[Rfam]
Shown here is a 413-nucleotide sequence from Pegethrix bostrychoides, a member of the family "Bacterial RNase P class A". The match comes from Rfam's covariance-model search (254 bits). Gene Ontology terms of the family: tRNA processing, dimeric ribonuclease P complex and ribonuclease P activity. Taxonomically the source falls in Pegethrix bostrychoides (Bacteria, Bacillati, Cyanophyceae, Oculatellales).
Nucleotides: 413
Base pairs, nucleotide, nucleotide: 001409002408003407004406005405007403008402011400012399013357014356015355016354017353018352019351021048022047023046024045025044026043027042028041029040053397054396055395057394058393059392060391061390062239063238064237065236076234077233078232080231081230082096083095084094085093086092097111098109099108100107101106112229113228117227118226119223120222121221133170134169135166136165137164138163139162141160142159143158144157145156146155178196179195180194181193182192183191198218199216200215201214202213203212204211205210243314244313253305254304256302321340322339323338324337325336326335327334328333
Number, partner (000 for none) and nucleotide at each position: 001409a002408g003407a004406g005405g006000a007403g008402g009000u010000g011400c012399a013357g014356g015355u016354g017353g018352u019351u020000g021048c022047a023046g024045g025044c026043u027042g028041g029040g030000g031000a032000a033000u034000c035000a036000a037000c038000g039000c040029c041028c042027u043026a044025g045024u046023c047022u048021g049000a050000g051000g052000a053397a054396a055395g056000u057394c058393c059392g060391g061390g062239c063238u064237u065236c066000c067000c068000a069000a070000a071000g072000a073000c074000c075000a076234g077233a078232c079000u080231u081230g082096c083095u084094g085093g086092g087000u088000a089000a090000c091000g092086c093085c094084c095083a096082g097111u098109g099108c100107g101106g102000g103000c104000g105000a106101c107100c108099g109098u110000g111097a112229g113228g114000a115000g116000a117227g118226u119223g120222c121221c122000a123000c124000a125000g126000a127000a128000a129000a130000a131000u132000a133170c134169c135166g136165c137164c138163u139162g140000a141160c142159u143158u144157g145156a146155a147000c148000u149000u150000a151000a152000a153000c154000a155146u156145u157144c158143a159142a160141g161000c162139c163138a164137g165136g166135u167000a168000a169134g170133g171000g172000u173000g174000c175000a176000a177000a178196g179195g180194u181193g182192c183191g184000g185000u186000a187000a188000g189000a190000g191183c192182g193181c194180a195179c196178c197000a198218g199216c200215a201214g202213c203212a204211u205210c206000g207000a208000g209000a210205g211204g212203u213202g214201c215200u216199g217000g218198c219000u220000c221121g222120g223119u224000a225000a226118a227117c228113c229112c230081c231080g232078g233077u234076c235000g236065g237064a238063a239062g240000c241000a242000a243314g244313g245000u246000c247000g248000a249000a250000c251000g252000g253305a254304g255000c256302c257000a258000a259000g260000g261000u262000u263000g264000g265000u266000c267000u268000u269000u270000u271000c272000c273000c274000g275000g276000c277000u278000c279000c280000g281000g282000g283000c284000a285000g286000u287000c288000u289000a290000g291000a292000g293000u294000u295000c296000g297000c298000u299000a300000c301000a302256g303000u304254c305253u306000g307000c308000g309000u310000a311000a312000u313244c314243c315000g316000c317000u318000a319000g320000a321340g322339g323338u324337g325336u326335c327334u328333g329000g330000u331000a332000a333328c334327a335326g336325g337324c338323a339322u340321c341000c342000c343000a344000g345000a346000u347000a348000g349000a350000u351019a352018a353017c354016c355015g356014c357013c358000c359000u360000u361000a362000g363000c364000g365000c366000g367000a368000c369000u370000u371000g372000u373000c374000g375000c376000g377000u378000c379000a380000a381000a382000g383000a384000a385000c386000a387000g388000a389000a390061c391060c392059c393058g394057g395055c396054u397053u398000a399012u400011g401000u402008c403007c404000g405005c406004c407003u408002c409001u410000u411000u412000c413000c